A member of the RNA family "UnaL2 LINE 3' element" from Acipenser ruthenus, 54 nucleotides long. The match comes from Rfam's covariance-model search (56 bits). From the family's description: The eel long interspersed element (LINE) UnaL2 and its partner short interspersed element (SINE) share a conserved 3' tail containing a stem-loop that is critical for their retrotransposition. Presumably, the first step of retrotransposition is the recognition of their 3' tails by UnaL2-encoded reverse transcriptase. The solution structure of a 17-nucleotide RNA derived from the 3' tail of UnaL2 was determined by NMR. The base pairs follow the family's consensus structure, which is taken from published work. Gene Ontology term of the family: transposition, RNA-mediated.

[Rfam]
RNA sequence: UAGAUCACUCUCUGUGAGUCGCUUUGGAUAAAAGCAUCUGCUAAAUGACCAAUU
Numbered sequence: 001u002a003g004a005u006c007a008c009u010c011u012c013u014g015u016g017a018g019u020c021g022c023u024u025u026g027g028a029u030a031a032a033a034g035c036a037u038c039u040g041c042u043a044a045a046u047g048a049c050c051a052a053u054u
Stems, first nucleotide, its partner, number of pairs: 013043001014041003021035005